[Rfam]
RNA: Mammalian CPEB3 ribozyme
Organism: Alligator mississippiensis
RNA sequence: AGAGGUUACAAGUUUGAGACCACAGCAGAAGCACUCACAUCAUGGCCUGUCAGAUUCCAGUAAAUCUGUAAGUUCUGCU
Numbered sequence: 001a002g003a004g005g006u007u008a009c010a011a012g013u014u015u016g017a018g019a020c021c022a023c024a025g026c027a028g029a030a031g032c033a034c035u036c037a038c039a040u041c042a043u044g045g046c047c048u049g050u051c052a053g054a055u056u057c058c059a060g061u062a063a064a065u066c067u068g069u070a071a072g073u074u075c076u077g078c079u
Base pairs, nucleotide, nucleotide: 018047020045021044024079025078026077027076028075029074030073031043051068052067053066054065055064056063